[Rfam]
RNA: Guanidine-II riboswitch aptamer (mini-ykkC)
Organism: Brucella anthropi
RNA sequence: CGCGCGGGACGACCCGCGCCAGUGUUCGCAUCGGGGACGGCCCCA
Number, nucleotide and partner (000 for none) at each position: 001c000002g019003c018004g017005c016006g015007g014008g013009a000010c000011g000012a000013c008014c007015c006016g005017c004018g003019c002020c000021a000022g000023u000024g000025u000026u000027c000028g000029c000030a000031u000032c000033g044034g043035g042036g041037a000038c000039g000040g000041c036042c035043c034044c033045a000